[Rfam]
RNA sequence: GAGGUGUGCUCAGAGCAGGUGGUCUGAAGAAUGGCUCCUCUGUUUACAACACCCAACAGGAAUUUAGGAUCAUUGUUUGAAGGGGCCCAACACUUGUGACUUCCUUUUGAGCAAAUGUCCUACACAU
Dot-bracket structure: ..((..((....(((((((.((((........))).).)))))))....)))).............((((...(((...(.(((.(.(((...))).).))).....)..)))...)))).......
Shown here is a 127-nucleotide RNA from Chinchilla lanigera, a member of the family "Small nucleolar RNA SNORA11". U107 (SNORA11) is a member of the H/ACA class of snoRNAs that guide the sites of modification of uridines to pseudouridines. This snoRNA was identified by RT-PCR from blood cells and its expression confirmed by Northern blot analysis. Rfam 15.1 lists 2,014 matches to the family in 202 species. Its family is annotated with RNA processing and nucleolus in the Gene Ontology.